c-di-AMP riboswitch aptamer (ydaO/yuaA leader): a 151-nucleotide sequence from Dietzia sp. ANT_WB102.
[Rfam]
RNA sequence: GCCGGGGUCACGCCUAAGCGCCGAAGGGUGCACCGGGGAACCAAGAUCCACUGGGGUGAAUCGCACGAGGGCCAACUGGCCCGAAGAGCGUAGGACAGACUUCCGUGUCCGAACCCGUCAGCUAACCCGGUCGGUGUCGCAGGAAGAAAGA
Numbered sequence: 001g002c003c004g005g006g007g008u009c010a011c012g013c014c015u016a017a018g019c020g021c022c023g024a025a026g027g028g029u030g031c032a033c034c035g036g037g038g039a040a041c042c043a044a045g046a047u048c049c050a051c052u053g054g055g056g057u058g059a060a061u062c063g064c065a066c067g068a069g070g071g072c073c074a075a076c077u078g079g080c081c082c083g084a085a086g087a088g089c090g091u092a093g094g095a096c097a098g099a100c101u102u103c104c105g106u107g108u109c110c111g112a113a114c115c116c117g118u119c120a121g122c123u124a125a126c127c128c129g130g131u132c133g134g135u136g137u138c139g140c141a142g143g144a145a146g147a148a149a150g151a
Stems, first nucleotide, its partner, number of pairs: 011136004018031003032131006042053002054116003062090003093110004
The pairing is the family consensus, mapped onto this sequence. It scores 80 bits against the family's covariance model.